Record summary
The family of this 139-nucleotide RNA sequence from Rhodamnia argentea is "Small nucleolar RNA snoR138". On this family, see Chen and Wu, Nucleic Acids Res 2009: "Mining small RNA sequencing data: a new approach to identify small nucleolar RNAs in Arabidopsis". It scores 68 bits against the family's covariance model. The family's consensus secondary structure was predicted with mfold. The family's RNA type in Rfam is H/ACA-box small nucleolar RNA.
RNA sequence: GUAGCCUUCAGAAUAACCAGAGGGUGAGAUCAAUGUAAUGCCCUCUGGUUCAGACAGAGGCUGAAACUAAAUGGGAAUCAGUUUGAGGGUGAGGAACGAAUUCCCCGAUUGUUCUUUUCCUAGAUUGCUUCCCACAUGG
Numbered sequence: 001g002u003a004g005c006c007u008u009c010a011g012a013a014u015a016a017c018c019a020g021a022g023g024g025u026g027a028g029a030u031c032a033a034u035g036u037a038a039u040g041c042c043c044u045c046u047g048g049u050u051c052a053g054a055c056a057g058a059g060g061c062u063g064a065a066a067c068u069a070a071a072u073g074g075g076a077a078u079c080a081g082u083u084u085g086a087g088g089g090u091g092a093g094g095a096a097c098g099a100a101u102u103c104c105c106c107g108a109u110u111g112u113u114c115u116u117u118u119c120c121u122a123g124a125u126u127g128c129u130u131c132c133c134a135c136a137u138g139g
Stems, first nucleotide, its partner, number of pairs: 003062005009057001015050008024041003074132004079127001081110001085106001087104001089103001111126001113124003